[Rfam]
RNA sequence: GCCGGUCCUCGGUAGUGGUUCCCGGGUCGAGCUGAGCGCCAGGAGGGCGCUCGCGACGGCACCCGGGAACUUCGAUCGAAGACCGGC
Numbered sequence: 001g002c003c004g005g006u007c008c009u010c011g012g013u014a015g016u017g018g019u020u021c022c023c024g025g026g027u028c029g030a031g032c033u034g035a036g037c038g039c040c041a042g043g044a045g046g047g048c049g050c051u052c053g054c055g056a057c058g059g060c061a062c063c064c065g066g067g068a069a070c071u072u073c074g075a076u077c078g079a080a081g082a083c084c085g086g087c
Base pairs, nucleotide, nucleotide: 001087002086003085004084005083006082007081009079010078011077012076013075017071018070019069020068021067022066023065024064025063026062027061